Rfam assigns this 77-nucleotide sequence from Polypedilum vanderplanki to the family "mir-11 microRNA precursor family". Its Rfam clan is "mir-6 clan". NCBI's taxonomy places the organism under Eukaryota, Neoptera, Nematocera, Chironomoidea, Polypedilum. Gene Ontology terms of the family: RISC complex, negative regulation of apoptotic process and cellular response to gamma radiation. The match comes from Rfam's covariance-model search (66 bits). Pairs were carried over by alignment from the consensus structure, which was predicted with RNAalifold. On this family, see Chen et al., Insect Mol Biol 2010: "Next-generation small RNA sequencing for microRNAs profiling in the honey bee Apis mellifera".

RNA sequence: UUUCCUAACGAGAACUUUUUCUGUGACUGCCUUAUUAAAAUUAUUGUGGCAUCACAGUCUGAGUUCUUGCUAGGCGG
Numbered sequence: 001u002u003u004c005c006u007a008a009c010g011a012g013a014a015c016u017u018u019u020u021c022u023g024u025g026a027c028u029g030c031c032u033u034a035u036u037a038a039a040a041u042u043a044u045u046g047u048g049g050c051a052u053c054a055c056a057g058u059c060u061g062a063g064u065u066c067u068u069g070c071u072a073g074g075c076g077g
Stems, first nucleotide, its partner, number of pairs: 004074003009069009021057006029050003